[Rfam]
RNA: Small nucleolar RNA SNORD34
RNA sequence: AGAGGCCUGUGACGAUCUUUCAAAAUUUUGCCUACAUUGUUUGAUAAUACAAUGAUAAAGCUAUAUUUGUGUCUGAGGCCCUA
Numbered sequence: 001a002g003a004g005g006c007c008u009g010u011g012a013c014g015a016u017c018u019u020u021c022a023a024a025a026u027u028u029u030g031c032c033u034a035c036a037u038u039g040u041u042u043g044a045u046a047a048u049a050c051a052a053u054g055a056u057a058a059a060g061c062u063a064u065a066u067u068u069g070u071g072u073c074u075g076a077g078g079c080c081c082u083a
Stems, first nucleotide, its partner, number of pairs: 002082001004080004